[Rfam]
mir-2807 microRNA precursor family: an 84-nucleotide RNA sequence from Bombyx mori.

RNA sequence: UUAACUCAAAUAUGUAUGCAGUUGGAACAGCGCCCCUAGCGGCAAACUUAGGUAAACGUUCUAACUCCAUACAAAUUUGAGUUU
Numbered sequence: 001u002u003a004a005c006u007c008a009a010a011u012a013u014g015u016a017u018g019c020a021g022u023u024g025g026a027a028c029a030g031c032g033c034c035c036c037u038a039g040c041g042g043c044a045a046a047c048u049u050a051g052g053u054a055a056a057c058g059u060u061c062u063a064a065c066u067c068c069a070u071a072c073a074a075a076u077u078u079g080a081g082u083u084u
Stems, first nucleotide, its partner, number of pairs: 008078004013073004018068001020066009034052002039047001
Notes
Gene Ontology terms of the family: miRNA-mediated post-transcriptional gene silencing and RISC complex. On this family, see Cai et al., Funct Integr Genomics 2010: "Novel microRNAs in silkworm (Bombyx mori)".